The family of this 54-nucleotide RNA from Salmo salar is "UnaL2 LINE 3' element". A reference for the family is Baba et al. (2004), "Solution structure of an RNA stem-loop derived from the 3' conserved region of eel LINE UnaL2", RNA. The family's RNA type in Rfam is cis-regulatory element. The family's consensus secondary structure is taken from published work. Rfam links the family to the GO term transposition, RNA-mediated. NCBI's taxonomy places the organism under Eukaryota, Eumetazoa, Teleostei, Protacanthopterygii, Salmo.
[Rfam]
RNA sequence: GGGUGUAGCUACUGUAAGUUGCUCUGGAUAAGAGUGUCUGCUAAAUGACAAAAA
Numbered sequence: 001g002g003g004u005g006u007a008g009c010u011a012c013u014g015u016a017a018g019u020u021g022c023u024c025u026g027g028a029u030a031a032g033a034g035u036g037u038c039u040g041c042u043a044a045a046u047g048a049c050a051a052a053a054a
Base pairs, nucleotide, nucleotide: 013043014041015040016039020036021035022034023033024032025031